RNA: Small nucleolar RNA SNORD24
RNA sequence: UGCAGAUGAUGUGAGAGAAUAUUUGCUAUCUGCGCAAUGGUGAUGACAAAAAAAAAAAGAAGGAAAUGCCUUGUGCA
Number, nucleotide and partner (000 for none) at each position: 001u077002g076003c075004a074005g000006a000007u000008g000009a000010u000011g000012u000013g000014a000015g000016a000017g000018a000019a000020u000021a000022u000023u000024u000025g000026c000027u000028a000029u000030c000031u000032g000033c000034g000035c000036a000037a000038u000039g000040g000041u000042g000043a000044u000045g000046a000047c000048a000049a000050a000051a000052a000053a000054a000055a000056a000057a000058a000059g000060a000061a000062g000063g000064a000065a000066a000067u000068g000069c000070c000071u000072u000073g000074u004075g003076c002077a001